S15-Flavobacteria ribosomal protein leader: a 64-nucleotide RNA sequence. Its Rfam clan is "Ribosomal Protein S15 Leader clan". It is annotated as a cis-regulatory leader.
RNA sequence: UACUUUUGCGCCCGUAUCCGAGAAACGGCUACUACAUAAAAAUCAUUUAAAUAAUAUUUGCAUG
Numbered sequence: 001u002a003c004u005u006u007u008g009c010g011c012c013c014g015u016a017u018c019c020g021a022g023a024a025a026c027g028g029c030u031a032c033u034a035c036a037u038a039a040a041a042a043u044c045a046u047u048u049a050a051a052u053a054a055u056a057u058u059u060g061c062a063u064g
Stems, first nucleotide, its partner, number of pairs: 014032003018028002